[Rfam]
RNA sequence: CAAGCACCUAAACCCAAGAGCUGUUACUUCUUAUAGUACCAGCUUAAAUAGAGGUACUGACAGGAAACACACCUCCUCACCUUUAGGGAGGCUUGCCUGUGGCCCUCAAAGUGAAUUUAGAGGUUUUACAACC
Numbered sequence: 001c002a003a004g005c006a007c008c009u010a011a012a013c014c015c016a017a018g019a020g021c022u023g024u025u026a027c028u029u030c031u032u033a034u035a036g037u038a039c040c041a042g043c044u045u046a047a048a049u050a051g052a053g054g055u056a057c058u059g060a061c062a063g064g065a066a067a068c069a070c071a072c073c074u075c076c077u078c079a080c081c082u083u084u085a086g087g088g089a090g091g092c093u094u095g096c097c098u099g100u101g102g103c104c105c106u107c108a109a110a111g112u113g114a115a116u117u118u119a120g121a122g123g124u125u126u127u128a129c130a131a132c133c
Stems, first nucleotide, its partner, number of pairs: 003058002006055004019044005025038004069126001071124005081111004086106003
This 133-nucleotide sequence from Sorex araneus belongs to the Rfam family "Small nucleolar RNA SNORA68".
Rfam's curators write: U68 is a member of the H/ACA class of small nucleolar RNAs (snoRNAs) which act as guides in the the modification of uridines to pseudouridines.
Rfam links the family to the GO terms RNA processing and nucleolus.
The sequence is in the family's curated seed alignment.
A reference for the family is Ganot et al. (1997), "The family of box ACA small nucleolar RNAs is defined by an evolutionarily conserved secondary structure and ubiquitous sequence elements essential for RNA accumulation", Genes Dev.